[Rfam]
This 120-nucleotide sequence from Ananas comosus belongs to the Rfam family "MIR168 microRNA precursor family". Pairs were carried over by alignment from the consensus structure, which was predicted with WAR. On this family, see Reinhart et al., Genes Dev 2002: "MicroRNAs in plants".
RNA sequence: AUCGCCGCCGCCUCGGAUUCGCUUGGUGCAGGUCGGGAACGCCCUCGGAUCGCCGCCGCCGCCCCGUGAUCGCGCCCGCGUUCCCGCCUUGCACCAACUGAAUCGGAGCCGGAAACGCGA
Numbered sequence: 001a002u003c004g005c006c007g008c009c010g011c012c013u014c015g016g017a018u019u020c021g022c023u024u025g026g027u028g029c030a031g032g033u034c035g036g037g038a039a040c041g042c043c044c045u046c047g048g049a050u051c052g053c054c055g056c057c058g059c060c061g062c063c064c065c066g067u068g069a070u071c072g073c074g075c076c077c078g079c080g081u082u083c084c085c086g087c088c089u090u091g092c093a094c095c096a097a098c099u100g101a102a103u104c105g106g107a108g109c110c111g112g113a114a115a116c117g118c119g120a
Base pairs, nucleotide, nucleotide: 013107014106017103018102019101020100023097024096025095026094027093028092029091030090031089032088034086035085036084037083038082040080041079